RNA sequence: GGCACAAACUCGAAGUAGAGUAGUUUAGUAGGGACAGGUGAUCCUUCUAAUCUACUCUACUUCAAAUAUAAGCCC
Numbered sequence: 001g002g003c004a005c006a007a008a009c010u011c012g013a014a015g016u017a018g019a020g021u022a023g024u025u026u027a028g029u030a031g032g033g034a035c036a037g038g039u040g041a042u043c044c045u046u047c048u049a050a051u052c053u054a055c056u057c058u059a060c061u062u063c064a065a066a067u068a069u070a071a072g073c074c075c
Stems, first nucleotide, its partner, number of pairs: 001074003006069001008067001012063012025050004030045001032043002035040001

Shown here is a 75-nucleotide RNA from Haemonchus placei, a member of the family "mir-5928 microRNA precursor family".
The source organism's lineage runs through Eukaryota, Opisthokonta, Metazoa, Ecdysozoa and Haemonchus.
The family's consensus secondary structure was predicted with RNAalifold.